[Rfam]
Background: Rfam assigns this 147-nucleotide RNA sequence from Mesorhizobium sp. J18 to the family "Alphaproteobacterial sRNA ar45". It scores 155 bits against the family's covariance model. The pairing is the family consensus, mapped onto this sequence. The literature on the family includes a 2012 paper in RNA Biol by del Val et al., "A survey of sRNA families in alpha-proteobacteria".
RNA sequence: GCCCAAAGUCGCACGUGCCUGUGGGUGUCCGCCGCCCCUCUAGAUGGUGAGGGAGCCGGUAAGGUACCUGGAACUAACCCCUCCAGUCGAUUUCGCGGCCAACCGCAAAAUCGAGGACAUCUUGAAGCAACGACGGUGCGGGCCUUU
Dot-bracket structure: ((((...((((....(((....((((((((((((..((((........))))....)))).......(((((.........)))))((((..(.((((....)))).)..))))))))))))....))).)))).....))))....